The family of this 152-nucleotide RNA sequence from Plasmodium relictum is "Plasmodium RNA of unknown function RUF2". Taxonomically the source falls in Haemamoeba (Eukaryota, Sar, Aconoidasida, Haemosporida). The family's consensus secondary structure was predicted with WAR. A reference for the family is Chakrabarti et al. (2007), "Structural RNAs of known and unknown function identified in malaria parasites by comparative genomics and RNA analysis", RNA. Rfam classes the family as a small RNA.
RNA sequence: AUUAUUGAACAAUUCGAAGAGUUACUAUUUAAAAUAUUUCUGUUUAAAUAUUAAAGAUAAUAACUUCAAAUUUGUUCAUAAAUCAAAUGUAUAUACGGUGGCUUUUUAAAUUUUGAAUUUUAAAAGUGUCAAUCCAUAUAUAUCACAGAAAA
Numbered sequence: 001a002u003u004a005u006u007g008a009a010c011a012a013u014u015c016g017a018a019g020a021g022u023u024a025c026u027a028u029u030u031a032a033a034a035u036a037u038u039u040c041u042g043u044u045u046a047a048a049u050a051u052u053a054a055a056g057a058u059a060a061u062a063a064c065u066u067c068a069a070a071u072u073u074g075u076u077c078a079u080a081a082a083u084c085a086a087a088u089g090u091a092u093a094u095a096c097g098g099u100g101g102c103u104u105u106u107u108a109a110a111u112u113u114u115g116a117a118u119u120u121u122a123a124a125a126g127u128g129u130c131a132a133u134c135c136a137u138a139u140a141u142a143u144c145a146c147a148g149a150a151a152a
Stems, first nucleotide, its partner, number of pairs: 006078006021064004026059004035050005089143007097135002099131004103126008